This 48-nucleotide RNA sequence from Cognatiyoonia koreensis belongs to the Rfam family "SAM/SAH riboswitch aptamer". It scores 53 bits against the family's covariance model. The base pairs follow the family's consensus structure, which is taken from published work. The literature on the family includes a 2019 paper in Nucleic Acids Res by Weickhmann et al., "The structure of the SAM/SAH-binding riboswitch". Its family is annotated with regulation of gene expression and S-adenosylmethionine metabolic process in the Gene Ontology.
[Rfam]
RNA sequence: CUUCCGCCACAACGGCUUCCUGACGUGGCGCACAGACUUAACGGAGCA
Numbered sequence: 001c002u003u004c005c006g007c008c009a010c011a012a013c014g015g016c017u018u019c020c021u022g023a024c025g026u027g028g029c030g031c032a033c034a035g036a037c038u039u040a041a042c043g044g045a046g047c048a
Stems, first nucleotide, its partner, number of pairs: 005030006013022002015047003019044002